The record is a 65-nucleotide sequence from Mytilus edulis, which matches "Selenocysteine insertion sequence 1" in Rfam. Its family is annotated with selenocysteine incorporation in the Gene Ontology. The family's RNA type in Rfam is cis-regulatory element.
[Rfam]
RNA sequence: CAUAUAUUUAAUGAUGGUAUGAUCUAAACCCCCUACCGGGAAGGAUUGUACCUGAUAUUCAUAUG
Numbered sequence: 001c002a003u004a005u006a007u008u009u010a011a012u013g014a015u016g017g018u019a020u021g022a023u024c025u026a027a028a029c030c031c032c033c034u035a036c037c038g039g040g041a042a043g044g045a046u047u048g049u050a051c052c053u054g055a056u057a058u059u060c061a062u063a064u065g
Stems, first nucleotide, its partner, number of pairs: 001065005016052010030040003